[Rfam]
Background: Shown here is an 85-nucleotide sequence from Clostridium arbusti, a member of the family "skipping-rope RNA". The organism belongs to Clostridium arbusti, within Bacteria. The sequence is in the family's curated seed alignment. Rfam classes the family as a small RNA.
RNA sequence: AUUAUUGAAGGGCAGAACGGGCAGCUGCCACGCCUUAGAAAUAAGGUCUUUCAAGAGAUGUAGGGUUGCCAACCUACUCAGUAAU
Numbered sequence: 001a002u003u004a005u006u007g008a009a010g011g012g013c014a015g016a017a018c019g020g021g022c023a024g025c026u027g028c029c030a031c032g033c034c035u036u037a038g039a040a041a042u043a044a045g046g047u048c049u050u051u052c053a054a055g056a057g058a059u060g061u062a063g064g065g066u067u068g069c070c071a072a073c074c075u076a077c078u079c080a081g082u083a084a085u
Stems, first nucleotide, its partner, number of pairs: 001085008011029005020070004031055001032047006060077005